RNA sequence: GAAAUUCAUAAUCCAGAACCGUAGACCGUAGGUCCGUUUUAACGGAGAAUGGCUAAGCCGCCUACCGAGGUUCGUUCAAGUGGGUAGAGUUGUGCUUGGGCGUUCUCUCGGGUAGAGGGCGCCCAUCUUUAAUCUAUUG
Numbered sequence: 001g002a003a004a005u006u007c008a009u010a011a012u013c014c015a016g017a018a019c020c021g022u023a024g025a026c027c028g029u030a031g032g033u034c035c036g037u038u039u040u041a042a043c044g045g046a047g048a049a050u051g052g053c054u055a056a057g058c059c060g061c062c063u064a065c066c067g068a069g070g071u072u073c074g075u076u077c078a079a080g081u082g083g084g085u086a087g088a089g090u091u092g093u094g095c096u097u098g099g100g101c102g103u104u105c106u107c108u109c110g111g112g113u114a115g116a117g118g119g120c121g122c123c124c125a126u127c128u129u130u131a132a133u134c135u136a137u138u139g
Stems, first nucleotide, its partner, number of pairs: 028065006034045003098124010

Ribosomal protein L10 leader: a 139-nucleotide RNA sequence from Alicyclobacillus tolerans. Gene Ontology term of the family: regulation of gene expression. By type it is a cis-regulatory leader. The base pairs follow the family's consensus structure, which was predicted with CMfinder.